[Rfam]
RNA sequence: UCCGCGGUGUCAGGAGAGCGCCUUGCAACAGAGGCCGCCGAAGGCGCAGGUGGUCGGAUCGACCCUGAACGCUCAGGUACCAGGACUGACGAGCGCCC
Dot-bracket structure: .......((((((......((((........)))).(((((..(((..((..............))...))))).))).......)))))).......
Notes:
This 98-nucleotide RNA sequence from a Burkholderiaceae bacterium belongs to the Rfam family "Glycine riboswitch aptamer". Rfam's curators write: This family represents the bacterial glycine riboswitch. Pairs were carried over by alignment from the consensus structure.